[Rfam]
RNA: Bacterial RNase P class B
Organism: Bacillus sp. THAF10
RNA sequence: GUGGUUGGGUAACCGCUACAGCUUUUAGUUGUAGAGGAAAGUCCAUGCUCGCACAGGCUGAGAUGCCUGUAGUGUUCGUGCCUAGCGAAAAAAUAAGCUAGGGUAGCUUGGUUUUUAUGACGAGGCUAACGGCAGGGAACACACCUAAGUCCUUGUGAUAUGGUGUUACUACCUUGAAAGUGCCACAGUGACGUAGUCUUACAAGAAAUUGUAAGAGUGGAACGAGGUAAACCCCUCGAGCGAGAAACCCAAAUAAUGGUAGGGGCACCUUCUCUAAGGAAUCCAACAAUGAGAGGGACAGAUACUUUUAAGUUUCUGUAGACAGAUGGUUACCACCUGCGUACAAGGAGCGAUCCGUUUGCAGUACAAAGGAACAGAACAUGGCUUACAGAU
Numbered sequence: 001g002u003g004g005u006u007g008g009g010u011a012a013c014c015g016c017u018a019c020a021g022c023u024u025u026u027a028g029u030u031g032u033a034g035a036g037g038a039a040a041g042u043c044c045a046u047g048c049u050c051g052c053a054c055a056g057g058c059u060g061a062g063a064u065g066c067c068u069g070u071a072g073u074g075u076u077c078g079u080g081c082c083u084a085g086c087g088a089a090a091a092a093a094u095a096a097g098c099u100a101g102g103g104u105a106g107c108u109u110g111g112u113u114u115u116u117a118u119g120a121c122g123a124g125g126c127u128a129a130c131g132g133c134a135g136g137g138a139a140c141a142c143a144c145c146u147a148a149g150u151c152c153u154u155g156u157g158a159u160a161u162g163g164u165g166u167u168a169c170u171a172c173c174u175u176g177a178a179a180g181u182g183c184c185a186c187a188g189u190g191a192c193g194u195a196g197u198c199u200u201a202c203a204a205g206a207a208a209u210u211g212u213a214a215g216a217g218u219g220g221a222a223c224g225a226g227g228u229a230a231a232c233c234c235c236u237c238g239a240g241c242g243a244g245a246a247a248c249c250c251a252a253a254u255a256a257u258g259g260u261a262g263g264g265g266c267a268c269c270u271u272c273u274c275u276a277a278g279g280a281a282u283c284c285a286a287c288a289a290u291g292a293g294a295g296g297g298a299c300a301g302a303u304a305c306u307u308u309u310a311a312g313u314u315u316c317u318g319u320a321g322a323c324a325g326a327u328g329g330u331u332a333c334c335a336c337c338u339g340c341g342u343a344c345a346a347g348g349a350g351c352g353a354u355c356c357g358u359u360u361g362c363a364g365u366a367c368a369a370a371g372g373a374a375c376a377g378a379a380c381a382u383g384g385c386u387u388a389c390a391g392a393u
Base pairs, nucleotide, nucleotide: 004393005392006391007389008334009333010332011331012330013329014328016034017033018032019031020030021029039387040386041385043384044383045382046381047380048244049243050242051241052240053070054069055068056067057066058065076239077238078237080235081102082101083100084099085098086097103130104128105127106126107125108124109123131234132233134174135173136172142165143164144163145162149159150158151157180232181231182228183227184226197216198215199214200213201212202211203210204209248264249263250262268297269296270295271294272293273292274291298319299318300317301316302315336372337371338370341367342366343365344364